RNA sequence: AGGGGUUGAAGCGGACACCCCUUCAGGCGCGCGCCCAAGCUCCGU
Number, nucleotide and partner (000 for none) at each position: 001a022002g021003g020004g019005g018006u017007u000008g000009a000010a000011g045012c044013g043014g042015a041016c000017a006018c005019c004020c003021c002022u001023u000024c000025a000026g035027g034028c033029g000030c000031g000032c000033g028034c027035c026036c000037a000038a000039g000040c000041u015042c014043c013044g012045u011